[Rfam]
Small Nucleolar RNA SNORD64: a 67-nucleotide sequence from Felis catus. Rfam classes the family as a C/D-box small nucleolar RNA.
RNA sequence: GGAUUUAUGAUGAGUUAUGUUUACUGAGUAUGAUGAAGUGAAACUCAGUGUGAGUACUCUGAAGUCC
Numbered sequence: 001g002g003a004u005u006u007a008u009g010a011u012g013a014g015u016u017a018u019g020u021u022u023a024c025u026g027a028g029u030a031u032g033a034u035g036a037a038g039u040g041a042a043a044c045u046c047a048g049u050g051u052g053a054g055u056a057c058u059c060u061g062a063a064g065u066c067c
Base pairs, nucleotide, nucleotide: 001067002066003065004064005063012059013058014057020053021052025047026046027045028044029043

It is one of the family's seed sequences. Rfam links the family to the GO terms RNA processing and nucleolus. The family is grouped with related families in Rfam's "SNORD74 clan".